[Rfam]
RNA sequence: CAAGUAAGGUAGAUAAUCGCGGCUGCAGGCGUCGAAAGACCGCAGACGAGGAAAGUCCGGGCUUCACAGGGCAGGAUGCCGGUUAACGGCCGGUGGAGGCGACUCCAAGGACAGUGCAACAGAAAUGUACCGCUAUUGGAACAAUAGUAAGGGUGGAAGGGCAGUGUAAGAGACUACCGCCUGGCUGGUAACAGUCGGGGCACAUGUAAACCCCAUCCGAAGCAAGACCGAACAAAAGCGUUGACGCGGCCCGCUAGCUUUAGGUAGGUUGCUGGAUCUGACUGGCAACAGUCAGACUAGAUAGAUGAUUAUCCAAGACAUAACCCGGCUUAUAGCCUUGCUUGCACA
Numbered sequence: 001c002a003a004g005u006a007a008g009g010u011a012g013a014u015a016a017u018c019g020c021g022g023c024u025g026c027a028g029g030c031g032u033c034g035a036a037a038g039a040c041c042g043c044a045g046a047c048g049a050g051g052a053a054a055g056u057c058c059g060g061g062c063u064u065c066a067c068a069g070g071g072c073a074g075g076a077u078g079c080c081g082g083u084u085a086a087c088g089g090c091c092g093g094u095g096g097a098g099g100c101g102a103c104u105c106c107a108a109g110g111a112c113a114g115u116g117c118a119a120c121a122g123a124a125a126u127g128u129a130c131c132g133c134u135a136u137u138g139g140a141a142c143a144a145u146a147g148u149a150a151g152g153g154u155g156g157a158a159g160g161g162c163a164g165u166g167u168a169a170g171a172g173a174c175u176a177c178c179g180c181c182u183g184g185c186u187g188g189u190a191a192c193a194g195u196c197g198g199g200g201c202a203c204a205u206g207u208a209a210a211c212c213c214c215a216u217c218c219g220a221a222g223c224a225a226g227a228c229c230g231a232a233c234a235a236a237a238g239c240g241u242u243g244a245c246g247c248g249g250c251c252c253g254c255u256a257g258c259u260u261u262a263g264g265u266a267g268g269u270u271g272c273u274g275g276a277u278c279u280g281a282c283u284g285g286c287a288a289c290a291g292u293c294a295g296a297c298u299a300g301a302u303a304g305a306u307g308a309u310u311a312u313c314c315a316a317g318a319c320a321u322a323a324c325c326c327g328g329c330u331u332a333u334a335g336c337c338u339u340g341c342u343u344g345c346a347c348a
Stems, first nucleotide, its partner, number of pairs: 001344010011333001012313007020048002023045004028040001053331003057328005062222004069252004074218005079093005094108001095106004109213002114211002116207003130152002132148007160178002163175003179201001180199008226270004235261005246254002277296008